[Rfam]
RNA sequence: GGUUGUAAAGUUGAGGCAAUAGCCGAAGUGCUCAUGGUGUCCUCUGUCAGGUUCCAAUGAAUCUGUCAAUUCUACU
Number, nucleotide and partner (000 for none) at each position: 001g000002g000003u000004u000005g000006u000007a000008a000009a000010g000011u000012u000013g044014a043015g042016g041017c000018a000019a000020u000021a076022g075023c000024c000025g072026a071027a070028g040029u039030g038031c000032u000033c000034a000035u000036g000037g000038u030039g029040u028041c016042c015043u014044c013045u000046g000047u000048c065049a064050g063051g062052u061053u060054c059055c000056a000057a000058u000059g054060a053061a052062u051063c050064u049065g048066u000067c000068a000069a000070u027071u026072c025073u000074a000075c022076u021
The family of this 76-nucleotide sequence from Crocodylus porosus is "Mammalian CPEB3 ribozyme". It scores 38 bits against the family's covariance model. NCBI's taxonomy places the organism under Eukaryota, Vertebrata, Gnathostomata, Archosauria, Crocodylus.